[Rfam]
RNA sequence: UUUGAAAAUAGCAAACUCAUUGAAACAUGAGGACGCAAAGCUGCGGGCCAAUUUCCAUGGCAGCCGGGUUGCCAAAA
Dot-bracket structure: (.((......((...(((((......)))))..[))..((((.((((((.........))).])))))))..))..)

Description
This 77-nucleotide RNA sequence from Niallia circulans belongs to the Rfam family "c-di-GMP-I-GGC riboswitch aptamer". Clan: c-di-GMP_I riboswitch clan. Gene Ontology term of the family: cyclic-di-GMP binding. Lineage of the source: Bacteria > Bacillati > Bacilli > Caryophanales > Niallia.